A member of the RNA family "Manganese Mn2+ riboswitch aptamer (yybP-ykoY)" from Comamonas kerstersii, 175 nucleotides long.

[Rfam]
RNA sequence: AGCCAAGUCCUUGGGGAGUAGUCCGUUUGGCGUGCAAUGCGCCAAAGGCAUGCAUCAACAGACUUGGCGCCUUCGCGCUAUGGUGCAUGCGGCUUGGAAGAGCUGGGCAAGACCAUUGACUGCAACCGUUCCAAAGGCUGGCGCGGUGGUAGUCAAUGCGUGUUUGAGCCAGCCU
Numbered sequence: 001a002g003c004c005a006a007g008u009c010c011u012u013g014g015g016g017a018g019u020a021g022u023c024c025g026u027u028u029g030g031c032g033u034g035c036a037a038u039g040c041g042c043c044a045a046a047g048g049c050a051u052g053c054a055u056c057a058a059c060a061g062a063c064u065u066g067g068c069g070c071c072u073u074c075g076c077g078c079u080a081u082g083g084u085g086c087a088u089g090c091g092g093c094u095u096g097g098a099a100g101a102g103c104u105g106g107g108c109a110a111g112a113c114c115a116u117u118g119a120c121u122g123c124a125a126c127c128g129u130u131c132c133a134a135a136g137g138c139u140g141g142c143g144c145g146g147u148g149g150u151a152g153u154c155a156a157u158g159c160g161u162g163u164u165u166g167a168g169c170c171a172g173c174c175u
Base pairs, nucleotide, nucleotide: 026046027045028044029043030042031041032040033039034038048090049089050088051087052086053085054084055083056082057081065080066079067078068077069076096175097174
A search with the family's covariance model found it, with a score of 53 bits. NCBI's taxonomy places the organism under Bacteria, Pseudomonadati, Pseudomonadota, Burkholderiales, Comamonas.